MIR390 microRNA precursor family: a 107-nucleotide RNA sequence from Corchorus olitorius.
[Rfam]
RNA sequence: GGGGAGAAUCUGUAAAGCUCAGGAGGGAUAGCGCCGUCUCGAGGUGUUUUAAUAUAUCAUCGAUCGAUGGAUGGCGCUAUCUAUCCUGAGUUUCAUGGCUUCUUCUU
Numbered sequence: 001g002g003g004g005a006g007a008a009u010c011u012g013u014a015a016a017g018c019u020c021a022g023g024a025g026g027g028a029u030a031g032c033g034c035c036g037u038c039u040c041g042a043g044g045u046g047u048u049u050u051a052a053u054a055u056a057u058c059a060u061c062g063a064u065c066g067a068u069g070g071a072u073g074g075c076g077c078u079a080u081c082u083a084u085c086c087u088g089a090g091u092u093u094c095a096u097g098g099c100u101u102c103u104u105c106u107u
Base pairs, nucleotide, nucleotide: 010098016092017091018090019089020088021087022086023085024084026082027081028080029079030078031077032076033075034074035073
Lineage of the source: Eukaryota > Streptophytina > Tracheophyta > Gunneridae > Corchorus.